[Rfam]
RNA sequence: CACCUCAAGGAUUAAGCCAUGCAUGUCGAAGUAUAAACUAGUAUACGGUGAAACUGCGAACGGCUCAUUAAAUCAGUUGCAAUCGAAGUGGCGAUAUCAGGUCUUGAUCGGAUAACACUGGCAAAUCUAGUGCUAAUACGUCCGGCUGGUAGAGGCGAGCAAUCGCGUCUGCCGGCCGCACUUACUAGCUGCUGCUGCCAACGGGCUGGAGGCGCCCUCGUGACGCCCCCGGCUCCCCCCGACGAGCCAUAGUAAGGAGUUGACCGCCCCCGCGGGCGGCGUGCCAUUCGAGCUUCUGCACUAUCAUCUCAGGUUGGUAGAGUAGUGGUCUACCAAGGAGUUUACGGUUAACGGAGGAUUAGGGUUCGACUCCGGAGAAUGAGCCUGAGAGACGGCUCAUACAUCCAAGGAUGGCAGCAGGCGCGAAAAUUACCCAAUGUACAAAGUACGAGGUAGUGACAAGGAAUAUCGGGGCCUGUGGGCAUUUUGCCCAUGCGGCCGCUGACAUGGACCGGCUCCAAAGGUGCCGGUGAAUACGAGUCGAGGGAAAGGUCUGGUGCCAGCAGCCGCGGUAAUUCCAGCUCGACC
Numbered sequence: 001c002a003c004c005u006c007a008a009g010g011a012u013u014a015a016g017c018c019a020u021g022c023a024u025g026u027c028g029a030a031g032u033a034u035a036a037a038c039u040a041g042u043a044u045a046c047g048g049u050g051a052a053a054c055u056g057c058g059a060a061c062g063g064c065u066c067a068u069u070a071a072a073u074c075a076g077u078u079g080c081a082a083u084c085g086a087a088g089u090g091g092c093g094a095u096a097u098c099a100g101g102u103c104u105u106g107a108u109c110g111g112a113u114a115a116c117a118c119u120g121g122c123a124a125a126u127c128u129a130g131u132g133c134u135a136a137u138a139c140g141u142c143c144g145g146c147u148g149g150u151a152g153a154g155g156c157g158a159g160c161a162a163u164c165g166c167g168u169c170u171g172c173c174g175g176c177c178g179c180a181c182u183u184a185c186u187a188g189c190u191g192c193u194g195c196u197g198c199c200a201a202c203g204g205g206c207u208g209g210a211g212g213c214g215c216c217c218u219c220g221u222g223a224c225g226c227c228c229c230c231g232g233c234u235c236c237c238c239c240c241g242a243c244g245a246g247c248c249a250u251a252g253u254a255a256g257g258a259g260u261u262g263a264c265c266g267c268c269c270c271c272g273c274g275g276g277c278g279g280c281g282u283g284c285c286a287u288u289c290g291a292g293c294u295u296c297u298g299c300a301c302u303a304u305c306a307u308c309u310c311a312g313g314u315u316g317g318u319a320g321a322g323u324a325g326u327g328g329u330c331u332a333c334c335a336a337g338g339a340g341u342u343u344a345c346g347g348u349u350a351a352c353g354g355a356g357g358a359u360u361a362g363g364g365u366u367c368g369a370c371u372c373c374g375g376a377g378a379a380u381g382a383g384c385c386u387g388a389g390a391g392a393c394g395g396c397u398c399a400u401a402c403a404u405c406c407a408a409g410g411a412u413g414g415c416a417g418c419a420g421g422c423g424c425g426a427a428a429a430u431u432a433c434c435c436a437a438u439g440u441a442c443a444a445a446g447u448a449c450g451a452g453g454u455a456g457u458g459a460c461a462a463g464g465a466a467u468a469u470c471g472g473g474g475c476c477u478g479u480g481g482g483c484a485u486u487u488u489g490c491c492c493a494u495g496c497g498g499c500c501g502c503u504g505a506c507a508u509g510g511a512c513c514g515g516c517u518c519c520a521a522a523g524g525u526g527c528c529g530g531u532g533a534a535u536a537c538g539a540g541u542c543g544a545g546g547g548a549a550a551g552g553u554c555u556g557g558u559g560c561c562a563g564c565a566g567c568c569g570c571g572g573u574a575a576u577u578c579c580a581g582c583u584c585g586a587c588c
Base pairs, nucleotide, nucleotide: 003464004463005462009457010424016422017421018420020419021418022417025057026056030055031054032053037049038048064377065376066375074298075297076296079293080292083291084290089286090285091284092283109140110139116132117131118130119129120128121127144177145176146175147174148173151170152169182255183254184253185252186251187250197243199241225233226232227231264279265278266277267276268275269274300348301347302346307339308338309337314336315335316334317333318332319331320330321329352374353373354372355371356367357366358365359364379400380399381398382397383396384395402413403412404411405410430455432454433453434452438450439449440448441447442446470504471503472502473500474499475498476497477495478494479493480492481491482490511531512530515527516526540587541586542585543584544583545582554581555580556579557578563570564569
Eukaryotic small subunit ribosomal RNA: a 588-nucleotide part of an RNA from Retortamonas sp. ATCC 50375. The family is grouped with related families in Rfam's "SSU clan". Taxonomically the source falls in Retortamonas (Eukaryota, Metamonada, Fornicata, Retortamonadidae). On this family, see Yusupov et al., Science 2001: "Crystal structure of the ribosome at 5.5 A resolution".